The record is a 292-nucleotide RNA from Brassica rapa, which matches "Plant signal recognition particle RNA" in Rfam.
It scores 196 bits against the family's covariance model.
Rfam links the family to the GO terms SRP-dependent cotranslational protein targeting to membrane, signal sequence recognition and signal recognition particle, endoplasmic reticulum targeting.

[Rfam]
RNA sequence: GUCGAGCUUGGUAAUGCGGGCUUGUAAUCCAAGUGGGGACAAUAAGGUGAUGGGACAUUGGGCCGGACUCGGAAAGGAUAUCUACUGGCCUGCCUGUUCCAAGUCGGGAGUUGAAUGUUCGGACUCGGCAGAGGCUUGUGGUUCGGACACUCUUAGAGUGGAGGAGACUGCGUGAGGCUGGUUUCACAAAGCAGCAUCCACCUCCCGCUUUCGACGGUGGAAGGAUUACGGGCCAGUGCCUCCCAAGCCCACUACGACCCAAUAAGCCGGCUCUAAUUGGACCAUCACUUUU
Numbered sequence: 001g002u003c004g005a006g007c008u009u010g011g012u013a014a015u016g017c018g019g020g021c022u023u024g025u026a027a028u029c030c031a032a033g034u035g036g037g038g039a040c041a042a043u044a045a046g047g048u049g050a051u052g053g054g055a056c057a058u059u060g061g062g063c064c065g066g067a068c069u070c071g072g073a074a075a076g077g078a079u080a081u082c083u084a085c086u087g088g089c090c091u092g093c094c095u096g097u098u099c100c101a102a103g104u105c106g107g108g109a110g111u112u113g114a115a116u117g118u119u120c121g122g123a124c125u126c127g128g129c130a131g132a133g134g135c136u137u138g139u140g141g142u143u144c145g146g147a148c149a150c151u152c153u154u155a156g157a158g159u160g161g162a163g164g165a166g167a168c169u170g171c172g173u174g175a176g177g178c179u180g181g182u183u184u185c186a187c188a189a190a191g192c193a194g195c196a197u198c199c200a201c202c203u204c205c206c207g208c209u210u211u212c213g214a215c216g217g218u219g220g221a222a223g224g225a226u227u228a229c230g231g232g233c234c235a236g237u238g239c240c241u242c243c244c245a246a247g248c249c250c251a252c253u254a255c256g257a258c259c260c261a262a263u264a265a266g267c268c269g270g271c272u273c274u275a276a277u278u279g280g281a282c283c284a285u286c287a288c289u290u291u292u
Stems, first nucleotide, its partner, number of pairs: 001040003004023007028037003044291010056279002058276003061272006068247002071244002075241003079238002085236008094224002097222005103215009113152002116149010128135002153158001160205005170197001172195002179188002